[Rfam]
Annotation: mir-8799 microRNA precursor family: a 92-nucleotide sequence from Canis lupus. Gene Ontology terms of the family: miRNA-mediated post-transcriptional gene silencing and RISC complex. The family's consensus secondary structure was predicted with RNAalifold.

RNA sequence: GGGGGGAGGUCAGAUCCUGGGCUGUGUCCCCGGUGCCCUGUGCUCCUGGGCCUGCGCUGUUGGAUUCCAGCUCCGGGCCACUGCAGUCCCCU
Numbered sequence: 001g002g003g004g005g006g007a008g009g010u011c012a013g014a015u016c017c018u019g020g021g022c023u024g025u026g027u028c029c030c031c032g033g034u035g036c037c038c039u040g041u042g043c044u045c046c047u048g049g050g051c052c053u054g055c056g057c058u059g060u061u062g063g064a065u066u067c068c069a070g071c072u073c074c075g076g077g078c079c080a081c082u083g084c085a086g087u088c089c090c091c092u
Base pairs, nucleotide, nucleotide: 001092002091003090004089005088006087009084010083013079016077017076019074020073021072023070026067027064028063030062031059032058033057034056035055036054040052042051043050044049